[Rfam]
RNA sequence: CUGUGGUGCAUUGUAGUUGCAUUGCAUGUUUUGCUCACUCAGUGCAAUGAAUCUGCUUUGCAACACAG
Numbered sequence: 001c002u003g004u005g006g007u008g009c010a011u012u013g014u015a016g017u018u019g020c021a022u023u024g025c026a027u028g029u030u031u032u033g034c035u036c037a038c039u040c041a042g043u044g045c046a047a048u049g050a051a052u053c054u055g056c057u058u059u060g061c062a063a064c065a066c067a068g
Stems, first nucleotide, its partner, number of pairs: 001068004006064001007062004013056004021048007
Shown here is a 68-nucleotide RNA from Cottoperca gobio, a member of the family "mir-33 microRNA precursor family". Gene Ontology terms of the family: RISC complex and gene silencing by miRNA. The base pairs follow the family's consensus structure, which was predicted with PFOLD. On this family, see Li et al., BMC Genomics 2009: "Direct sequencing and expression analysis of a large number of miRNAs in Aedes aegypti and a multi-species survey of novel mosquito miRNAs".